[Rfam]
RNA sequence: GGGCAUUCAGAAGGCUUGCAAUCUGGGCUACAAGCUGAGAACCUAGUUUCUCUCACUCGCCCAGGGGAAAGUCCCCGGACAAAUGGCAGAAAGUGUCCUGGUUGAAUCCAGUAUUGGCUCGCGCUCUACCGUACAUGAGCUGAGACGUUCGCACGAACCGAGCUUGGUGAUCGCGAGCCGACUUUGUCAGCGUUACUAGUAAUGCAAGUGUGCAGUAACACACGCAGAAACAGAACGGGGCUCAUUCUCGGAAUGCA
Numbered sequence: 001g002g003g004c005a006u007u008c009a010g011a012a013g014g015c016u017u018g019c020a021a022u023c024u025g026g027g028c029u030a031c032a033a034g035c036u037g038a039g040a041a042c043c044u045a046g047u048u049u050c051u052c053u054c055a056c057u058c059g060c061c062c063a064g065g066g067g068a069a070a071g072u073c074c075c076c077g078g079a080c081a082a083a084u085g086g087c088a089g090a091a092a093g094u095g096u097c098c099u100g101g102u103u104g105a106a107u108c109c110a111g112u113a114u115u116g117g118c119u120c121g122c123g124c125u126c127u128a129c130c131g132u133a134c135a136u137g138a139g140c141u142g143a144g145a146c147g148u149u150c151g152c153a154c155g156a157a158c159c160g161a162g163c164u165u166g167g168u169g170a171u172c173g174c175g176a177g178c179c180g181a182c183u184u185u186g187u188c189a190g191c192g193u194u195a196c197u198a199g200u201a202a203u204g205c206a207a208g209u210g211u212g213c214a215g216u217a218a219c220a221c222a223c224g225c226a227g228a229a230a231c232a233g234a235a236c237g238g239g240g241c242u243c244a245u246u247c248u249c250g251g252a253a254u255g256c257a
Stems, first nucleotide, its partner, number of pairs: 003256006010249002014209006022065007037052005070242002073240004085097004098111004114181009127169003137165004147158004211226003
The record is a 257-nucleotide sequence from Cottoperca gobio, which matches "RNase MRP" in Rfam. Pairs were carried over by alignment from the consensus structure, which is taken from published work. It is annotated as a ribozyme. On this family, see Schmitt et al., FASEB J 1993: "Secondary structure of RNase MRP RNA as predicted by phylogenetic comparison". It scores 151 bits against the family's covariance model.